[Rfam]
RNA sequence: GUGCCCACCUCACCGAAGCAGUGGAUGGGCGGGAGCGGAGGAACCACCUUCGCCGGGCCUGCCCGCAGAUCGGUUUCCAGCUCGGUUCGCCGGCCUGGUUCCCCGGAUCUGUUCGCAGGCCGGCUCGGGGUGAAGCCAUGCCGUCCCUGGACGCCGUGGCCGGGCCACCUUCCCGCCCGAACCCGACAGCUCACUUCGCAGGCGUGCCGGAAGGACGA
Numbered sequence: 001g002u003g004c005c006c007a008c009c010u011c012a013c014c015g016a017a018g019c020a021g022u023g024g025a026u027g028g029g030c031g032g033g034a035g036c037g038g039a040g041g042a043a044c045c046a047c048c049u050u051c052g053c054c055g056g057g058c059c060u061g062c063c064c065g066c067a068g069a070u071c072g073g074u075u076u077c078c079a080g081c082u083c084g085g086u087u088c089g090c091c092g093g094c095c096u097g098g099u100u101c102c103c104c105g106g107a108u109c110u111g112u113u114c115g116c117a118g119g120c121c122g123g124c125u126c127g128g129g130g131u132g133a134a135g136c137c138a139u140g141c142c143g144u145c146c147c148u149g150g151a152c153g154c155c156g157u158g159g160c161c162g163g164g165c166c167a168c169c170u171u172c173c174c175g176c177c178c179g180a181a182c183c184c185g186a187c188a189g190c191u192c193a194c195u196u197c198g199c200a201g202g203c204g205u206g207c208c209g210g211a212a213g214g215a216c217g218a
Stems, first nucleotide, its partner, number of pairs: 002204004010033002035199006045127001128184003136159004162178004

Notes:
c-di-AMP riboswitch aptamer (ydaO/yuaA leader): a 218-nucleotide RNA sequence from Hamadaea sp. The base pairs follow the family's consensus structure.